[Rfam]
A member of the RNA family "EGFOA RNA", 115 nucleotides long.
RNA sequence: GCUACCCAGAUUAUAGACCGUCGCAGUAGCCAAUAGGCUAGGUGGCAUGACAAAGUUGUACUUCAAAGUACAUACGUGGUAAAGCUGCACUGCACCUGGCACGUUGAAUGUCAUG
Numbered sequence: 001g002c003u004a005c006c007c008a009g010a011u012u013a014u015a016g017a018c019c020g021u022c023g024c025a026g027u028a029g030c031c032a033a034u035a036g037g038c039u040a041g042g043u044g045g046c047a048u049g050a051c052a053a054a055g056u057u058g059u060a061c062u063u064c065a066a067a068g069u070a071c072a073u074a075c076g077u078g079g080u081a082a083a084g085c086u087g088c089a090c091u092g093c094a095c096c097u098g099g100c101a102c103g104u105u106g107a108a109u110g111u112c113a114u115g
Base pairs, nucleotide, nucleotide: 006099007098008097009096020090021089023088024087025086026085027040028039029038030037031036046115047114048113049112050111051110052109057072058071059070060069061068074104075103076102077101078100